[Rfam]
RNA sequence: ACGUAGGAAAGGAGGUGAUCGGGUAAAUGAUUGAAACCCGGACGUACGAGGUGGCUGCGGGCUAGCGGCCCGCCACCACACGCAGUGCGGUGCCGGACCAGCACGUGAGGUACGCGUGCAGCCGGCCCAUUUCCAAGCAGUCACCCGACCCGCGGGCCGCCGGUACGUCCGACCGGCUCCUCCAAUGGAGGACCAGGCUCGCGGGUCGCCUGCU
Numbered sequence: 001a002c003g004u005a006g007g008a009a010a011g012g013a014g015g016u017g018a019u020c021g022g023g024u025a026a027a028u029g030a031u032u033g034a035a036a037c038c039c040g041g042a043c044g045u046a047c048g049a050g051g052u053g054g055c056u057g058c059g060g061g062c063u064a065g066c067g068g069c070c071c072g073c074c075a076c077c078a079c080a081c082g083c084a085g086u087g088c089g090g091u092g093c094c095g096g097a098c099c100a101g102c103a104c105g106u107g108a109g110g111u112a113c114g115c116g117u118g119c120a121g122c123c124g125g126c127c128c129a130u131u132u133c134c135a136a137g138c139a140g141u142c143a144c145c146c147g148a149c150c151c152g153c154g155g156g157c158c159g160c161c162g163g164u165a166c167g168u169c170c171g172a173c174c175g176g177c178u179c180c181u182c183c184a185a186u187g188g189a190g191g192a193c194c195a196g197g198c199u200c201g202c203g204g205g206u207c208g209c210c211u212g213c214u
Base pairs, nucleotide, nucleotide: 015058016057017056019054060127061126062125063124065122066121068119069118071116072115073114146208147207148206149205150204151203152202153201154200155199156198157197158196159177160176161175162174163173164172

The family of this 214-nucleotide RNA sequence from Streptomyces sp. PAN_FS17 is "Actinobacteria sRNA Ms_IGR-5". Pairs were carried over by alignment from the consensus structure. It is annotated as a small RNA. It scores 94 bits against the family's covariance model. The literature on the family includes a 2013 paper in RNA by Li et al., "Identification of small RNAs in Mycobacterium smegmatis using heterologous Hfq".